RNA sequence: UGGGUAGUAUCCAUACGGAACUGCACCGAAUUGUUUUUAUUUUUUACUUAUGCUGCUCAUAUCUAUAGGAAUGGGACAGUUAU
Numbered sequence: 001u002g003g004g005u006a007g008u009a010u011c012c013a014u015a016c017g018g019a020a021c022u023g024c025a026c027c028g029a030a031u032u033g034u035u036u037u038u039a040u041u042u043u044u045u046a047c048u049u050a051u052g053c054u055g056c057u058c059a060u061a062u063c064u065a066u067a068g069g070a071a072u073g074g075g076a077c078a079g080u081u082a083u
Stems, first nucleotide, its partner, number of pairs: 001028003004024005010019002053079003056075005062070002
Dot-bracket structure: ((((((((.((......))))))).)))........................((((((((.((.....))))))).)))....

Rfam assigns this 83-nucleotide RNA from Clostridium niameyense to the family "pan motif". A search with the family's covariance model found it, with a score of 54 bits. The family's RNA type in Rfam is cis-regulatory element.